The record is a 165-nucleotide RNA from Oscillospiraceae bacterium Marseille-Q3528, which matches "Clostridiales-1 RNA" in Rfam.
Lineage of the source: Bacteria > Bacillati > Clostridia > Eubacteriales > Oscillospiraceae.
A search with the family's covariance model found it, with a score of 116 bits.
RNA sequence: AAAUCACAGUGACGAAGAUCCGAUUCCGCCUGUGCUUGCACAAAGGCGGGAGGCGAAUCUUACGACACGCCCGGACAUGAGCAUGAAAGUGGAGCGUAAGCUACACGAUAUGCGAAUGGACGUAGAAUUGCGGGAGUGCACCGCACGGAGCAAUUCGUGUGAUUU
Numbered sequence: 001a002a003a004u005c006a007c008a009g010u011g012a013c014g015a016a017g018a019u020c021c022g023a024u025u026c027c028g029c030c031u032g033u034g035c036u037u038g039c040a041c042a043a044a045g046g047c048g049g050g051a052g053g054c055g056a057a058u059c060u061u062a063c064g065a066c067a068c069g070c071c072c073g074g075a076c077a078u079g080a081g082c083a084u085g086a087a088a089g090u091g092g093a094g095c096g097u098a099a100g101c102u103a104c105a106c107g108a109u110a111u112g113c114g115a116a117u118g119g120a121c122g123u124a125g126a127a128u129u130g131c132g133g134g135a136g137u138g139c140a141c142c143g144c145a146c147g148g149a150g151c152a153a154u155u156c157g158u159g160u161g162a163u164u165u
Stems, first nucleotide, its partner, number of pairs: 001165007010067002013064001016060004021055002024051007031042004072122002076118003081113004089106003093102003125156007136146004